[Rfam]
Shown here is a 41-nucleotide RNA from Diabrotica balteata, a member of the family "Infectious bronchitis virus D-RNA". It is annotated as a cis-regulatory element. Pairs were carried over by alignment from the consensus structure, which is taken from published work. On this family, see Dalton et al., J Virol 2001: "cis-acting sequences required for coronavirus infectious bronchitis virus defective-RNA replication and packaging". Taxonomically the source falls in Diabrotica (Eukaryota, Eumetazoa, Coleoptera, Polyphaga). The match comes from Rfam's covariance-model search (35 bits). Gene Ontology terms of the family: viral genome packaging and viral genome replication.
RNA sequence: AUAAGAUAGCUAUAUAGCUUAUAAGCUAUAUAGCUAUCUAU
Numbered sequence: 001a002u003a004a005g006a007u008a009g010c011u012a013u014a015u016a017g018c019u020u021a022u023a024a025g026c027u028a029u030a031u032a033g034c035u036a037u038c039u040a041u
Stems, first nucleotide, its partner, number of pairs: 001041002005038013